[Rfam]
RNA sequence: UCAAAGCUCCAUCUACAAAUGGAUAAGACUUUUGUAAAUGGAUAAGACUUUUGUCUUUAGUGUGUACGGGCUUUUGAAAAGAAAAAAAAGAGGAGAAAUUGCCAAUUUUUUGUUCUAUCAAGAGCAAGGUUGUCAAUUUCGUUUC
Numbered sequence: 001u002c003a004a005a006g007c008u009c010c011a012u013c014u015a016c017a018a019a020u021g022g023a024u025a026a027g028a029c030u031u032u033u034g035u036a037a038a039u040g041g042a043u044a045a046g047a048c049u050u051u052u053g054u055c056u057u058u059a060g061u062g063u064g065u066a067c068g069g070g071c072u073u074u075u076g077a078a079a080a081g082a083a084a085a086a087a088a089a090g091a092g093g094a095g096a097a098a099u100u101g102c103c104a105a106u107u108u109u110u111u112g113u114u115c116u117a118u119c120a121a122g123a124g125c126a127a128g129g130u131u132g133u134c135a136a137u138u139u140c141g142u143u144u145c
Base pairs, nucleotide, nucleotide: 008042009041010040011039012038090145091144092143093142095140096139097138098137099136100135101134103132104131105130107124108123109122110121111120